[Rfam]
RNA sequence: CCCGCAGGACGAGGUGCAGCAGGUGGUUCUGCUCGGCGGUCAGCAGGGGCCACAGCUCCACCUGCAGCGCCUUGACGGCCUCCGUGUCCUUCUCCUGCG
Numbered sequence: 001c002c003c004g005c006a007g008g009a010c011g012a013g014g015u016g017c018a019g020c021a022g023g024u025g026g027u028u029c030u031g032c033u034c035g036g037c038g039g040u041c042a043g044c045a046g047g048g049g050c051c052a053c054a055g056c057u058c059c060a061c062c063u064g065c066a067g068c069g070c071c072u073u074g075a076c077g078g079c080c081u082c083c084g085u086g087u088c089c090u091u092c093u094c095c096u097g098c099g
Stems, first nucleotide, its partner, number of pairs: 005097002007094002011091004019083001021081004026076003030069004036065004046061001048059002
The family of this 99-nucleotide sequence from Carlito syrichta is "mir-1184 microRNA precursor family".
Rfam 15.1 lists 204 matches to the family in 120 species.
NCBI's taxonomy places the organism under Eukaryota, Craniata, Tetrapoda, Boreoeutheria, Carlito.
Its family is annotated with RISC complex and miRNA-mediated post-transcriptional gene silencing in the Gene Ontology.